[Rfam]
RNA sequence: CGAUGGGAUAGAGGCUGCAGCUUAUAUGAGUAAAGCGGAAGAGAGACAAUGACAUCUAUGACUCCGUUUGAAAGGAUAAACUGCCGAAGUGUGGACAGGUCAUUGUCUGUUCAUGCUGGGGAUGUUUUCGAACAGGAACAUCACUGUCGCGUUAUUUAACGUGGAGGGCUAUCUUCGGA
Numbered sequence: 001c002g003a004u005g006g007g008a009u010a011g012a013g014g015c016u017g018c019a020g021c022u023u024a025u026a027u028g029a030g031u032a033a034a035g036c037g038g039a040a041g042a043g044a045g046a047c048a049a050u051g052a053c054a055u056c057u058a059u060g061a062c063u064c065c066g067u068u069u070g071a072a073a074g075g076a077u078a079a080a081c082u083g084c085c086g087a088a089g090u091g092u093g094g095a096c097a098g099g100u101c102a103u104u105g106u107c108u109g110u111u112c113a114u115g116c117u118g119g120g121g122a123u124g125u126u127u128u129c130g131a132a133c134a135g136g137a138a139c140a141u142c143a144c145u146g147u148c149g150c151g152u153u154a155u156u157u158a159a160c161g162u163g164g165a166g167g168g169c170u171a172u173c174u175u176c177g178g179a
Stems, first nucleotide, its partner, number of pairs: 006174006017084004022079004033069007088117012118145002121142008147164007
The family of this 179-nucleotide RNA from Bacillus sp. PK3_68 is "Lysine riboswitch aptamer". The organism belongs to Bacillus, within Bacteria. The base pairs follow the family's consensus structure, which is taken from published work. Rfam's curators write: Riboswitches are metabolite binding domains within certain messenger RNAs that serve as precision sensors for their corresponding targets.